[Rfam]
Background
The family of this 72-nucleotide RNA from Flavobacterium psychrophilum is "Flavo-1 RNA". It is annotated as a small RNA. Rfam's curators put it in the seed alignment. The family's consensus secondary structure is taken from published work.

RNA sequence: AAAUAGCCCCGAUAGUAGUGAAAAUCCUCGCCAUUUUUCUUGGCGAGAUUGCAACGGAUAGCGGGAACGUAA
Numbered sequence: 001a002a003a004u005a006g007c008c009c010c011g012a013u014a015g016u017a018g019u020g021a022a023a024a025u026c027c028u029c030g031c032c033a034u035u036u037u038u039c040u041u042g043g044c045g046a047g048a049u050u051g052c053a054a055c056g057g058a059u060a061g062c063g064g065g066a067a068c069g070u071a072a
Stems, first nucleotide, its partner, number of pairs: 009064003013060002018055002023050004029045005